[Rfam]
RNA: Archaeal large subunit ribosomal RNA, nucleotides 10 to 540
Organism: Haloplanus salinarum
RNA sequence: CUACUGUGCCAGCUGGUGAAUGGCUCGGCUCGAGAGCCGACGACGGACGUGCCAAGCUGCGAUAAGCCUCGGGGACCCGCAUGGAGGGAAAGAACCGAGGAUUUCCGAAUGGGAAUCCCCUCGCAAUUGCCUCGCGCAAUGGGGAACGCUCCGAAUUGAAACAUCUCAGUAGGAGCAGGAACAGAACGCAAACCGCGAUCCCGUCAGUAACCGCGAGUGAACGCGGGCCAGUCCAAACCGAAUCUCUUACGAGACAUGUGGUGUCGGGCUGAUCUUCAACAUCCGACCCAACCCGAGAAGUCUCCUGAAACGGAGCGCGAUACAGGGUGACAGCCCCGUAUCGGGCUGCAGUACGAUGGGAAUCAGUCCCAGAGUAGCGGGGAUUGGAUAUUCCUCGUGAACGUCCCAGGCAUCAACUGGGAAGACUAAACACUCCUCGAGACCGAUAGCGAACAAGUAGCGUGAGCGAACGCUGAAAAGUAUCCCGAGAAGGGAACUGAAAUAGAGCCUGAACUCAGCUGGCGAUCGAGC
Numbered sequence: 001c002u003a004c005u006g007u008g009c010c011a012g013c014u015g016g017u018g019a020a021u022g023g024c025u026c027g028g029c030u031c032g033a034g035a036g037c038c039g040a041c042g043a044c045g046g047a048c049g050u051g052c053c054a055a056g057c058u059g060c061g062a063u064a065a066g067c068c069u070c071g072g073g074g075a076c077c078c079g080c081a082u083g084g085a086g087g088g089a090a091a092g093a094a095c096c097g098a099g100g101a102u103u104u105c106c107g108a109a110u111g112g113g114a115a116u117c118c119c120c121u122c123g124c125a126a127u128u129g130c131c132u133c134g135c136g137c138a139a140u141g142g143g144g145a146a147c148g149c150u151c152c153g154a155a156u157u158g159a160a161a162c163a164u165c166u167c168a169g170u171a172g173g174a175g176c177a178g179g180a181a182c183a184g185a186a187c188g189c190a191a192a193c194c195g196c197g198a199u200c201c202c203g204u205c206a207g208u209a210a211c212c213g214c215g216a217g218u219g220a221a222c223g224c225g226g227g228c229c230a231g232u233c234c235a236a237a238c239c240g241a242a243u244c245u246c247u248u249a250c251g252a253g254a255c256a257u258g259u260g261g262u263g264u265c266g267g268g269c270u271g272a273u274c275u276u277c278a279a280c281a282u283c284c285g286a287c288c289c290a291a292c293c294c295g296a297g298a299a300g301u302c303u304c305c306u307g308a309a310a311c312g313g314a315g316c317g318c319g320a321u322a323c324a325g326g327g328u329g330a331c332a333g334c335c336c337c338g339u340a341u342c343g344g345g346c347u348g349c350a351g352u353a354c355g356a357u358g359g360g361a362a363u364c365a366g367u368c369c370c371a372g373a374g375u376a377g378c379g380g381g382g383a384u385u386g387g388a389u390a391u392u393c394c395u396c397g398u399g400a401a402c403g404u405c406c407c408a409g410g411c412a413u414c415a416a417c418u419g420g421g422a423a424g425a426c427u428a429a430a431c432a433c434u435c436c437u438c439g440a441g442a443c444c445g446a447u448a449g450c451g452a453a454c455a456a457g458u459a460g461c462g463u464g465a466g467c468g469a470a471c472g473c474u475g476a477a478a479a480g481u482a483u484c485c486c487g488a489g490a491a492g493g494g495a496a497c498u499g500a501a502a503u504a505g506a507g508c509c510u511g512a513a514c515u516c517a518g519c520u521g522g523c524g525a526u527c528g529a530g531c
Base pairs, nucleotide, nucleotide: 007524008523009522010521011520012519013518014517015516016515022509023473024472027444028443029441030440031439032438033437034436035434036433044107045106046105047104048061049060050059067100068099069098070097071096072095076088077087078086111120112119113118126140127139128138129137130136147178148176149175150174151173152172158165159164188196189195200227201226202225203224204223210218211217230427231426232425233424238261239260240259270365271364272363273362280358281357282356283355294343295342296341300316302315303314304313305312319323325337326336327335377398378397379396380395381394382393383392405421406420407419408418409417460467461466